[Rfam]
RNA sequence: GCCAUUGAUGAUCAAAUCCAUAUAAAUGAGGUGUGGUGGAGCCAGGUUCCUGCUUGCCAGGAUGAACCUCCUGUGUGAAGUCAUAUUCCAUAUGAUAUUUCUGGAUUUAACUGAGGC
Number, nucleotide and partner (000 for none) at each position: 001g117002c116003c115004a000005u000006u000007g000008a000009u000010g000011a000012u000013c000014a000015a000016a000017u000018c000019c000020a000021u000022a000023u000024a000025a000026a000027u000028g000029a000030g000031g000032u000033g000034u000035g000036g000037u000038g000039g000040a000041g000042c000043c000044a000045g000046g000047u000048u062049c061050c060051u059052g058053c000054u000055u000056g000057c000058c052059a051060g050061g049062a048063u000064g000065a000066a000067c000068c000069u000070c000071c000072u000073g000074u000075g000076u000077g000078a000079a000080g000081u000082c000083a000084u000085a000086u000087u000088c000089c000090a000091u000092a000093u000094g000095a000096u000097a000098u000099u000100u000101c000102u000103g000104g000105a000106u000107u000108u000109a000110a000111c000112u000113g000114a000115g003116g002117c001